[Rfam]
RNA: Small Cajal body specific RNA 16
Organism: Propithecus coquereli
RNA sequence: AAGCUCUGGGAGGUUUUACUCUUGGCAUUUGAAAAAGGCCACUCUGCCAGGUAGCCCAACCCUGACCUAAAGAGAAUUCCCAGAAGUCUUUCCUGGGAUUUGAAUUUGCAGUAACCGGUGUGAGCAUUCUAGCAGCAGUUUGGUGAUCAUGUACGAUACUGCAAACAGGA
Numbered sequence: 001a002a003g004c005u006c007u008g009g010g011a012g013g014u015u016u017u018a019c020u021c022u023u024g025g026c027a028u029u030u031g032a033a034a035a036a037g038g039c040c041a042c043u044c045u046g047c048c049a050g051g052u053a054g055c056c057c058a059a060c061c062c063u064g065a066c067c068u069a070a071a072g073a074g075a076a077u078u079c080c081c082a083g084a085a086g087u088c089u090u091u092c093c094u095g096g097g098a099u100u101u102g103a104a105u106u107u108g109c110a111g112u113a114a115c116c117g118g119u120g121u122g123a124g125c126a127u128u129c130u131a132g133c134a135g136c137a138g139u140u141u142g143g144u145g146a147u148c149a150u151g152u153a154c155g156a157u158a159c160u161g162c163a164a165a166c167a168g169g170a
Stems, first nucleotide, its partner, number of pairs: 003055003006051002009048001011045002013039005020032002079097003083092003105165009115155001121149003125145004131140003